[Rfam]
RNA sequence: CUCCGCGAAAUCUAUUUAGGUAGAGCGUCAUCCGAAUACCCCGGGGGGUAGAGCACUGGAUGGGUAAUGGGGCCCCACAGGCUUACUGAUCCUAACCAAACUCCGAAUACCCGGGAGUACUAGAUGGCAGACACACUGCGGAUGCUAACGUCCGUAGUGAAGAGGGAAACAACCCUGACCUCCAGCUAAGGCCCCCAAUUCGUGGCUAAGUGGGAAAGCAGGUGGGACGACCAAAACAACCAGGAGGUUGGCUUAGAAGCAGCCAUCCUUUAAAGAUAGCGUAACAGCUCACUGGUCUAAUCAAGUUGUCCUGCGGCGAAGAUGUAACGGGGCUCAAGCCACGAGCCGAAGCUGAGGAUGCGAGAGCAUGGUAGCGGAGCGUAGUGUGAUAUAGCACUUUGUCUCUUCUAUCGCGUCGUUAUGAACGGUGCGGGCAACCGCGCUCAAGUAGCGAAGCGGUAGCGCAGACAUAAGUGCUUUCUGUGAAGCCGGCGCGUGAGCGAUCCGGUGGAGAGAUCACUAGCGAGAAU
Number, nucleotide and partner (000 for none) at each position: 001c467002u466003c000004c464005g463006c462007g000008a000009a000010a000011u024012c023013u022014a021015u020016u000017u000018a000019g000020g015021u014022a013023g012024a011025g000026c130027g128028u127029c126030a125031u124032c123033c000034g000035a000036a121037u119038a118039c117040c115041c114042c113043g112044g111045g110046g000047g000048g000049u000050a000051g104052a102053g101054c000055a000056c000057u098058g097059g096060a000061u094062g093063g092064g091065u000066a000067a000068u000069g086070g084071g083072g082073c081074c080075c000076c000077a000078c000079a000080g074081g073082c072083u071084u070085a000086c069087u000088g000089a000090u000091c064092c063093u062094a061095a000096c059097c058098a057099a000100a000101c053102u052103c000104c051105g000106a000107a000108u000109a000110c045111c044112c043113g042114g041115g040116a000117g039118u038119a037120c000121u036122a000123g032124a031125u030126g029127g028128c027129a000130g026131a000132c000133a000134c159135a158136c157137u156138g155139c154140g153141g152142a151143u150144g000145c000146u000147a000148a000149c000150g143151u142152c141153c140154g139155u138156a137157g136158u135159g134160a000161a000162g000163a000164g175165g174166g173167a000168a000169a000170c000171a000172a000173c166174c165175c164176u000177g000178a000179c357180c356181u355182c354183c000184a353185g352186c351187u000188a000189a000190g347191g346192c345193c000194c000195c000196c000197a000198a000199u344200u000201c343202g342203u341204g340205g339206c338207u000208a000209a000210g000211u000212g000213g000214g000215a000216a000217a000218g317219c316220a000221g000222g314223u313224g312225g311226g310227a309228c308229g307230a306231c305232c000233a000234a000235a000236a000237c000238a000239a296240c295241c294242a293243g292244g000245a269246g268247g267248u000249u000250g264251g263252c262253u000254u000255a000256g000257a000258a000259g000260c000261a000262g252263c251264c250265a000266u000267c247268c246269u245270u274271u000272a000273a000274a270275g290276a000277u000278a000279g288280c287281g000282u000283a000284a000285c000286a000287g280288c279289u000290c275291a000292c243293u242294g241295g240296u239297c000298u000299a000300a000301u000302c000303a000304a000305g231306u230307u229308g228309u227310c226311c225312u224313g223314c222315g000316g219317c218318g000319a000320a000321g000322a000323u000324g000325u000326a000327a000328c000329g000330g000331g000332g000333c000334u000335c000336a000337a000338g206339c205340c204341a203342c202343g201344a199345g192346c191347c190348g000349a000350a000351g186352c185353u184354g182355a181356g180357g179358a000359u456360g000361c453362g452363a000364g000365a449366g000367c000368a000369u000370g000371g000372u000373a000374g000375c000376g000377g000378a000379g000380c000381g000382u000383a000384g000385u000386g000387u000388g000389a000390u000391a000392u000393a000394g000395c000396a000397c000398u000399u000400u000401g000402u000403c000404u000405c000406u000407u000408c000409u000410a000411u000412c000413g000414c000415g000416u000417c000418g000419u000420u000421a000422u000423g000424a000425a000426c000427g000428g000429u000430g000431c000432g000433g000434g000435c000436a000437a000438c000439c000440g000441c000442g000443c000444u000445c000446a000447a000448g000449u365450a000451g000452c362453g361454a000455a000456g359457c000458g000459g000460u000461a000462g006463c005464g004465c000466a002467g001468a000469c525470a000471u522472a000473a521474g520475u519476g518477c000478u516479u515480u514481c513482u000483g000484u000485g000486a000487a000488g509489c508490c507491g506492g505493c502494g501495c500496g000497u000498g000499a000500g495501c494502g493503a000504u000505c492506c491507g490508g489509u488510g000511g000512a000513g481514a480515g479516a478517u000518c476519a475520c474521u473522a471523g000524c000525g469526a000527g000528a000529a000530u000
The record is a 530-nucleotide part of an RNA from Sagittula stellata, which matches "Bacterial large subunit ribosomal RNA" in Rfam.
The organism belongs to Sagittula stellata, within Bacteria.
The family's consensus secondary structure is taken from published work.
Clan: LSU clan.
The literature on the family includes a 2001 paper in Science by Yusupov et al., "Crystal structure of the ribosome at 5.5 A resolution".